This 128-nucleotide sequence from Cricetulus griseus belongs to the Rfam family "Small nucleolar RNA SNORA72". The match comes from Rfam's covariance-model search (74 bits).

[Rfam]
RNA sequence: CUGCAAAUAUCCUCGCUCUUUAGGUCUGCUAGGAAUUGAGACAGGCUGAACACUGUGUCAAAGUCAUGGAUGUAUCCCCAGACCUAGUUGUCUCCCUAGGUGUGGUAUUAUAAAUUCUGGUGAUAAAC
Number, nucleotide and partner (000 for none) at each position: 001c000002u000003g053004c000005a000006a000007a000008u000009a000010u000011c000012c000013u000014c000015g000016c044017u043018c000019u041020u040021u039022a000023g037024g036025u035026c000027u000028g000029c000030u000031a000032g000033g000034a000035a025036u024037u023038g000039a021040g020041a019042c000043a017044g016045g000046c000047u000048g000049a000050a000051c000052a000053c003054u000055g000056u000057g000058u000059c000060a000061a000062a000063g121064u120065c119066a118067u000068g117069g116070a000071u000072g000073u000074a000075u000076c000077c000078c105079c104080a103081g000082a101083c100084c099085u098086a097087g096088u000089u000090g000091u000092c000093u000094c000095c000096c087097u086098a085099g084100g083101u082102g000103u080104g079105g078106u000107a000108u000109u000110a000111u000112a000113a000114a000115u000116u069117c068118u066119g065120g064121u063122g000123a000124u000125a000126a000127a000128c000
Rfam links the family to the GO terms nucleolus and RNA processing. Pairs were carried over by alignment from the consensus structure, which was predicted with PFOLD. Rfam's curators write: U72 is a member of the H/ACA class of snoRNAs. Lineage of the source: Eukaryota > Opisthokonta > Craniata > Cricetidae > Cricetulus.